[Rfam]
RNA sequence: CCCAAGGCUCACGCCUUGGGCUAUAAUCUGUCGCCCUUACAGGGCU
Numbered sequence: 001c002c003c004a005a006g007g008c009u010c011a012c013g014c015c016u017u018g019g020g021c022u023a024u025a026a027u028c029u030g031u032c033g034c035c036c037u038u039a040c041a042g043g044g045c046u
Stems, first nucleotide, its partner, number of pairs: 001020008033045005
This 46-nucleotide sequence from Parabacteroides sp. AF48-14 belongs to the Rfam family "Acido-Lenti-1 RNA". It is annotated as a small RNA. It scores 57 bits against the family's covariance model.